[Rfam]
A member of the RNA family "Plastid-ccsA-ndhD-1 3UTR RNA" from Vitis vinifera, 57 nucleotides long. A search with the family's covariance model found it, with a score of 58 bits.
RNA sequence: GAAAAAGCCAAAACCAUUUGAAUCAAGUAAUGCAGUGAUUCAAAUGGUUGUUACAAA
Numbered sequence: 001g002a003a004a005a006a007g008c009c010a011a012a013a014c015c016a017u018u019u020g021a022a023u024c025a026a027g028u029a030a031u032g033c034a035g036u037g038a039u040u041c042a043a044a045u046g047g048u049u050g051u052u053a054c055a056a057a
Stems, first nucleotide, its partner, number of pairs: 007054001010051001012049014
Source information
Its Rfam clan is "Plastid-ccsA_ndhD 3UTR RNA clan". Taxonomically the source falls in Vitis (Eukaryota, Viridiplantae, Pentapetalae, Vitaceae). About the family: Plastid-ccsA-ndhD-1 is a non-coding RNA (ncRNA) recognised in plastids. By type it is a cis-regulatory element.